[Rfam]
RNA sequence: GGACUCGGCUUGCUGAAAGCGCGCGCAGCAAGAGGCGAGAG
Numbered sequence: 001g002g003a004c005u006c007g008g009c010u011u012g013c014u015g016a017a018a019g020c021g022c023g024c025g026c027a028g029c030a031a032g033a034g035g036c037g038a039g040a041g
Stems, first nucleotide, its partner, number of pairs: 004039004009032007
Overview:
This 41-nucleotide RNA from Lentivirus humimdef1 belongs to the Rfam family "Human immunodeficiency virus type 1 dimerisation initiation site". For this family Rfam cites "Position dependence of functional hairpins important for human immunodeficiency virus type 1 RNA encapsidation in vivo" (McBride and Panganiban, J Virol, 1997). Pairs were carried over by alignment from the consensus structure, which is taken from published work. Gene Ontology term of the family: viral RNA genome packaging. Rfam's curators write: This cis element is composed of four hairpins called SL1 to SL4 (SL is for Stem Loop). This element is involved in encapsidation of the retroviral RNA an essential step in replication. It is found in HIV, SIV and CIV. It has been shown that SL1 may provide a secondary binding site for Rev. SL1, SL2, SL3 and SL4 have been independently expressed and structurally characterised. The source organism's lineage runs through Viruses, Artverviricota, Retroviridae, Lentivirus and Lentivirus humimdef1. Rfam's curators put it in the seed alignment.